[Rfam]
RNA sequence: CCCAUUGGCGAGGAUGAACUGGUGAGGUAUAUCCUCACUGGUUUGGAUCAGGAGUACAAUCCUGUCAUGACCGCCAUCCUCGCCCAAUCCGAUGAAACCUCCUUCGCAGAUCUCCUGUCUCAACUCCUCAGCUUCGAGC
Numbered sequence: 001c002c003c004a005u006u007g008g009c010g011a012g013g014a015u016g017a018a019c020u021g022g023u024g025a026g027g028u029a030u031a032u033c034c035u036c037a038c039u040g041g042u043u044u045g046g047a048u049c050a051g052g053a054g055u056a057c058a059a060u061c062c063u064g065u066c067a068u069g070a071c072c073g074c075c076a077u078c079c080u081c082g083c084c085c086a087a088u089c090c091g092a093u094g095a096a097a098c099c100u101c102c103u104u105c106g107c108a109g110a111u112c113u114c115c116u117g118u119c120u121c122a123a124c125u126c127c128u129c130a131g132c133u134u135c136g137a138g139c
Stems, first nucleotide, its partner, number of pairs: 005137004088108001090106003
RNA: Small nucleolar RNA Z247
Organism: Panicum virgatum